This 74-nucleotide sequence from Chiloscyllium punctatum belongs to the Rfam family "Small nucleolar RNA SNORD34". For this family Rfam cites "Purified box C/D snoRNPs are able to reproduce site-specific 2'-O-methylation of target RNA in vitro" (Galardi et al., Mol Cell Biol, 2002). The family's consensus secondary structure was predicted with PFOLD. Rfam's curators write: snoRNA U34 is found in intron 5 of the ribosomal protein L13a gene in humans. Rfam classes the family as a C/D-box small nucleolar RNA.
RNA sequence: UUCUGUCACUGAUGAGUUGUCUUUACCUACAUUGUUUGAUUUUUAAUGAGAACAAACUUGAUACUGAGAUAGAA
Numbered sequence: 001u002u003c004u005g006u007c008a009c010u011g012a013u014g015a016g017u018u019g020u021c022u023u024u025a026c027c028u029a030c031a032u033u034g035u036u037u038g039a040u041u042u043u044u045a046a047u048g049a050g051a052a053c054a055a056a057c058u059u060g061a062u063a064c065u066g067a068g069a070u071a072g073a074a
Base pairs, nucleotide, nucleotide: 001074002073004071005070006069007068